[Rfam]
Nucleotides: 099
Base pairs, nucleotide, nucleotide: 007054008053009052010051011050012049015044016043020041021040022038023036024035025034026033027032055072056071057070058069059068060067061066074094076097080092081091082090
Number, partner (000 for none) and nucleotide at each position: 001000a002000c003000g004000a005000u006000u007054g008053u009052u010051u011050a012049c013000u014000a015044g016043g017000g018000u019000u020041c021040c022038g023036c024035c025034g026033g027032u028000u029000a030000u031000c032027g033026c034025c035024g036023g037000g038022c039000u040021g041020g042000u043016c044015c045000g046000a047000g048000a049012g050011u051010a052009a053008a054007c055072c056071g057070c058069u059068c060067u061066u062000g063000c064000a065000u066061a067060a068059g069058a070057g071056c072055g073000c074094c075000a076097c077000g078000g079000a080092a081091g082090g083000a084000u085000a086000a087000a088000a089000a090082c091081c092080u093000g094074g095000g096000a097076g098000a099000u
Guanidine-I riboswitch aptamer: a 99-nucleotide sequence from Paenibacillus sp. yr247. The pairing is the family consensus, mapped onto this sequence. On this family, see Battaglia et al., RNA 2017: "Structural basis for guanidine sensing by the ykkC family of riboswitches". The organism belongs to Paenibacillus, within Bacteria.